[Rfam]
RNA: t44 RNA
RNA sequence: AACUCAAUUGUGUAAUUACACACACGUGUCGGCACAUACGCCGGGGUGCCUUGGCCAGUAGGGCGGGGUCGGUCGUAUGGGAUACGUGGAGGCAUAAC
Numbered sequence: 001a002a003c004u005c006a007a008u009u010g011u012g013u014a015a016u017u018a019c020a021c022a023c024a025c026g027u028g029u030c031g032g033c034a035c036a037u038a039c040g041c042c043g044g045g046g047u048g049c050c051u052u053g054g055c056c057a058g059u060a061g062g063g064c065g066g067g068g069u070c071g072g073u074c075g076u077a078u079g080g081g082a083u084a085c086g087u088g089g090a091g092g093c094a095u096a097a098c
Stems, first nucleotide, its partner, number of pairs: 023088008035079005040073004048069005